Rfam assigns this 115-nucleotide RNA sequence from Mucilaginibacter segetis to the family "SAM riboswitch aptamer (S box leader)". Taxonomically the source falls in Mucilaginibacter (Bacteria, Bacteroidota, Sphingobacteriales, Sphingobacteriaceae). The base pairs follow the family's consensus structure, which is taken from published work. On this family, see Grundy and Henkin, Mol Microbiol 1998: "The S box regulon: a new global transcription termination control system for methionine and cysteine biosynthesis genes in gram-positive bacteria".
RNA sequence: UACUUAUCCAGAAAGACAGAGGGAAAGGCCCUAUGAUGUCUUAGCAACCUGUACCGGCUGUAAAAGCAAGUAAAAGGUGCUAAUUCCUGCUCCGCCAAACGGGGACAGAUAAGCU
Numbered sequence: 001u002a003c004u005u006a007u008c009c010a011g012a013a014a015g016a017c018a019g020a021g022g023g024a025a026a027g028g029c030c031c032u033a034u035g036a037u038g039u040c041u042u043a044g045c046a047a048c049c050u051g052u053a054c055c056g057g058c059u060g061u062a063a064a065a066g067c068a069a070g071u072a073a074a075a076g077g078u079g080c081u082a083a084u085u086c087c088u089g090c091u092c093c094g095c096c097a098a099a100c101g102g103g104g105a106c107a108g109a110u111a112a113g114c115u
Base pairs, nucleotide, nucleotide: 003113004112005111006110007109008108013042014041015040016039017038021031022030023029026088027087028086043081044080045079046078048077049076052072053071054070085107090104091103092102093101094100
Dot-bracket structure: ..((((((....(((((...(((..[[[)))......)))))((((.((..(((...............)))...))))))...(]]].(((((.....)))))..)))))))..